[Rfam]
The family of this 75-nucleotide RNA sequence from Callorhinchus milii is "Small nucleolar RNA SNORD53/SNORD92". The family's RNA type in Rfam is C/D-box small nucleolar RNA. Rfam 15.1 lists 2,250 matches to the family in 671 species.
RNA sequence: GUGCUAUGAUGACUUAAUAAGGUUUCGCUAUGUUUCUGAGAAAAUCGGAUGACACUUCCUUGGCUGUCUGAGCAU
Dot-bracket structure: ((((...................................................................))))
Gene Ontology terms of the family: nucleolus and RNA processing. Clan: SNORD52 clan.